[Rfam]
RNA sequence: ACACGAGAAAGGAGGUGAUCCGGAGCAUGCAUGACCACCGGACGCGUGAGGUGACUGCGGCCUAAGGGCCUGCCGUCUCGCUCAGCGCAGCCGGCUCAGCCCGGCUCAUAUCCACGCAGUCACCCGGCCUGCGGGUCGCCGGUACGUCCGACCGGCCCCCUGCCGCCACGGCGGUCAGGGGAAGCGACCCGCAGGCCGUCUGCG
Dot-bracket structure: ..............(((.(..................................).))).(..(..((((..((....................))...)))).)..).................(((((((((((((((((((.......)))))).............................)))))))))))))......
Actinobacteria sRNA Ms_IGR-5: a 204-nucleotide RNA sequence from Streptomyces chumphonensis. By type it is a small RNA. On this family, see Li et al., RNA 2013: "Identification of small RNAs in Mycobacterium smegmatis using heterologous Hfq". Taxonomically the source falls in Streptomyces (Bacteria, Actinomycetota, Kitasatosporales, Streptomycetaceae).